[Rfam]
RNA sequence: UUAAAGUACACGGGGAGCUGGUAAACCAGCUGAGAGGGAAGUGCGACUUCCGACCCACGAACCUGAUACGGAUAAUGCCGGCGUAGGAACAAUAAAGUGAAAGAUCU
Number, nucleotide and partner (000 for none) at each position: 001u000002u000003a000004a000005a000006g000007u094008a093009c000010a000011c000012g056013g055014g054015g000016a000017g030018c029019u028020g027021g026022u000023a000024a000025a000026c021027c020028a019029g018030c017031u000032g000033a000034g000035a000036g000037g051038g050039a049040a048041g047042u000043g000044c000045g000046a000047c041048u040049u039050c038051c037052g000053a000054c014055c013056c012057a000058c000059g000060a000061a000062c087063c086064u085065g084066a000067u000068a000069c080070g079071g078072a000073u000074a000075a000076u000077g000078c071079c070080g069081g000082c000083g000084u065085a064086g063087g062088a000089a000090c000091a000092a000093u008094a007095a000096a000097g000098u000099g000100a000101a000102a000103g000104a000105u000106c000107u000
This 107-nucleotide sequence from Aerococcus christensenii belongs to the Rfam family "TPP riboswitch aptamer (THI element)".
Lineage of the source: Bacteria > Bacillati > Lactobacillales > Aerococcaceae > Aerococcus.
It scores 60 bits against the family's covariance model.